RNA sequence: CCCAGGGGACGACCCCGGCGAUCGGUGGGCCGCGUUCCGGGACGGCCCGG
Numbered sequence: 001c002c003c004a005g006g007g008g009a010c011g012a013c014c015c016c017g018g019c020g021a022u023c024g025g026u027g028g029g030c031c032g033c034g035u036u037c038c039g040g041g042a043c044g045g046c047c048c049g050g
Base pairs, nucleotide, nucleotide: 001020003018005016006015007014008013037050038049039048040047041046
RNA: Guanidine-II riboswitch aptamer (mini-ykkC)
Organism: Pseudomonas oryzihabitans